[Rfam]
RNA sequence: GGCUAGAGGCCUGAUUUUUGACUCAACGUCUGUUAAAAAAAAGUGUACGUGAGCAAAAAAUCAGGUGUGCUAGAAU
Dot-bracket structure: ..((((..(((((((((((..((((.(((.................))))))).))))).))))))...))))...
This 76-nucleotide RNA sequence from Panagrolaimus sp. PS1159 belongs to the Rfam family "mir-87 microRNA precursor family". A search with the family's covariance model found it, with a score of 52 bits.